[Rfam]
About this RNA:
ALIL pseudoknot: a 117-nucleotide sequence.
RNA sequence: CGCAUAUUUUGCCCAGGCGGAGCUCGACCGCCGGUUGAAGCCAUGACGGCGUUCAUCGAUACGCAUCGUGACGUCUACGGAGUCGAGCCGAUCUGCAAGGUGUUGCCGAUUGCUCCG
Numbered sequence: 001c002g003c004a005u006a007u008u009u010u011g012c013c014c015a016g017g018c019g020g021a022g023c024u025c026g027a028c029c030g031c032c033g034g035u036u037g038a039a040g041c042c043a044u045g046a047c048g049g050c051g052u053u054c055a056u057c058g059a060u061a062c063g064c065a066u067c068g069u070g071a072c073g074u075c076u077a078c079g080g081a082g083u084c085g086a087g088c089c090g091a092u093c094u095g096c097a098a099g100g101u102g103u104u105g106c107c108g109a110u111u112g113c114u115c116c117g
Stems, first nucleotide, its partner, number of pairs: 016032005078117005089112002092109002095106004

It is annotated as a cis-regulatory element. The base pairs follow the family's consensus structure, which is taken from published work. A search with the family's covariance model found it, with a score of 121 bits.